[Rfam]
RNA: Small nucleolar RNA R44/J54/Z268 family
Organism: Durio zibethinus
RNA sequence: UGUGCAAGUGAAGAUAAAACAGACAGGGACAUCAGUACUCAUUGGAGGAUGAUGAGUUGUCUAUGCAUGGGAAUCUCUCUGAUGCACA
Numbered sequence: 001u002g003u004g005c006a007a008g009u010g011a012a013g014a015u016a017a018a019a020c021a022g023a024c025a026g027g028g029a030c031a032u033c034a035g036u037a038c039u040c041a042u043u044g045g046a047g048g049a050u051g052a053u054g055a056g057u058u059g060u061c062u063a064u065g066c067a068u069g070g071g072a073a074u075c076u077c078u079c080u081g082a083u084g085c086a087c088a
Stems, first nucleotide, its partner, number of pairs: 002087005